[Rfam]
RNA sequence: GCCACAUGAUGAUUUAUAGAUUACAUUAACACUCUGUGUAAAGAUGACUUCCUAUCUAUCACCCAAGACUGAUGGCU
Numbered sequence: 001g002c003c004a005c006a007u008g009a010u011g012a013u014u015u016a017u018a019g020a021u022u023a024c025a026u027u028a029a030c031a032c033u034c035u036g037u038g039u040a041a042a043g044a045u046g047a048c049u050u051c052c053u054a055u056c057u058a059u060c061a062c063c064c065a066a067g068a069c070u071g072a073u074g075g076c077u
Base pairs, nucleotide, nucleotide: 001076002075003074004073029039030038031037032036
Record summary: Rfam assigns this 77-nucleotide RNA from Astyanax mexicanus to the family "Small nucleolar RNA SNORD83". Rfam 15.1 lists 1,393 matches to the family in 644 species. A search with the family's covariance model found it, with a score of 61 bits. Pairs were carried over by alignment from the consensus structure, which was predicted with PFOLD. Rfam links the family to the GO terms RNA processing and nucleolus. It is annotated as a C/D-box small nucleolar RNA. NCBI's taxonomy places the organism under Eukaryota, Chordata, Neopterygii, Characoidei, Astyanax.